[Rfam]
Nucleotides: 114
Base pairs, nucleotide, nucleotide: 008025009024010023011022012021045068046067047066048065049064051062
Number, partner (000 for none) and nucleotide at each position: 001000u002000c003000u004000c005000u006000g007000a008025g009024c010023u011022g012021a013000g014000u015000u016000a017000g018000u019000g020000a021012u022011u023010g024009g025008c026000c027000a028000g029000a030000g031000a032000u033000u034000a035000u036000u037000a038000u039000u040000u041000u042000a043000u044000u045068u046067u047066u048065g049064g050000a051062g052000a053000a054000a055000g056000u057000u058000a059000u060000g061000u062051c063000a064049c065048u066047a067046a068045g069000u070000a071000c072000u073000g074000a075000a076000g077000c078000g079000a080000a081000a082000g083000c084000u085000c086000a087000a088000a089000u090000u091000c092000u093000u094000g095000c096000u097000g098000a099000a100000u101000u102000u103000g104000g105000c106000c107000g108000c109000g110000g111000c112000g113000a114000a
Shown here is a 114-nucleotide RNA sequence from Paraferrimonas haliotis, a member of the family "Ribosomal S15 leader". The E. coli Ribosomal S15 gene 5' UTR can form two alternative structures. One that is a series of three hairpins, The other includes a pseudoknot. Its family is annotated with regulation of translation, ncRNA-mediated in the Gene Ontology. A search with the family's covariance model found it, with a score of 95 bits. Its Rfam clan is "Ribosomal Protein S15 Leader clan". For this family Rfam cites "Pseudoknot and translational control in the expression of the S15 ribosomal protein" (Benard et al., Biochimie, 1996). The base pairs follow the family's consensus structure, which is taken from published work. Taxonomically the source falls in Paraferrimonas (Bacteria, Gammaproteobacteria, Alteromonadales, Ferrimonadaceae).